RNA sequence: CGGCGGGCCACGCGGUCCCAACGCCGCGCUGCUCUCUGCAAGGAGACGCUUA
Dot-bracket structure: ..........((((((......))))))....(((((....)))))......
Shown here is a 52-nucleotide RNA from Alphaproteobacteria bacterium PA3, a member of the family "serC leader".
It is annotated as a cis-regulatory leader.
Rfam's curators write: This family is a putative regulatory RNA structure that is found upstream of the serC-serA operon in some alpha-proteobacteria. The final stem of the structure overlaps the ribosome binding site of the serC reading frame.
The pairing is the family consensus, mapped onto this sequence.
The organism belongs to Alphaproteobacteria, within Bacteria.
For this family Rfam cites "Evidence for a second class of S-adenosylmethionine riboswitches and other regulatory RNA motifs in alpha-proteobacteria" (Corbino et al., Genome Biol, 2005).
Its family is annotated with regulation of gene expression in the Gene Ontology.